[Rfam]
Notes:
This 76-nucleotide sequence from Parnassius apollo belongs to the Rfam family "mir-971 microRNA precursor family". The family's consensus secondary structure was predicted with RNAalifold. The source organism's lineage runs through Eukaryota, Arthropoda, Eumetabola, Obtectomera and Parnassius.
RNA sequence: AAUUCGGUACACUCUAAGUAUGAACGCCAAGCAUAUUGCUUACAGUUUGGUGUUCUACCUUACAGUGAAUCGCGCU
Numbered sequence: 001a002a003u004u005c006g007g008u009a010c011a012c013u014c015u016a017a018g019u020a021u022g023a024a025c026g027c028c029a030a031g032c033a034u035a036u037u038g039c040u041u042a043c044a045g046u047u048u049g050g051u052g053u054u055c056u057a058c059c060u061u062a063c064a065g066u067g068a069a070u071c072g073c074g075c076u
Stems, first nucleotide, its partner, number of pairs: 006071003010067004015062003025052008